Description:
A member of the RNA family "Mitochondrion-encoded tmRNA" from Phytophthora cinnamomi, 76 nucleotides long. For this family Rfam cites "A second eukaryotic group with mitochondrion-encoded tmRNA: in silico identification and experimental confirmation" (Hafez et al., RNA Biol, 2013). The organism belongs to Phytophthora, within Eukaryota.

RNA sequence: UAAAUGGACCCAGAGGCAGUUUUUGGUAUUUCCAUAUAAAUUAAAUGACUGGGGAUAAUAAUAGAAUUGACAUUUA
Numbered sequence: 001u002a003a004a005u006g007g008a009c010c011c012a013g014a015g016g017c018a019g020u021u022u023u024u025g026g027u028a029u030u031u032c033c034a035u036a037u038a039a040a041u042u043a044a045a046u047g048a049c050u051g052g053g054g055a056u057a058a059u060a061a062u063a064g065a066a067u068u069g070a071c072a073u074u075u076a
Base pairs, nucleotide, nucleotide: 001076002075003074004073005072006071010026011025012024013023014022015021027057028056029055030054031053032052033051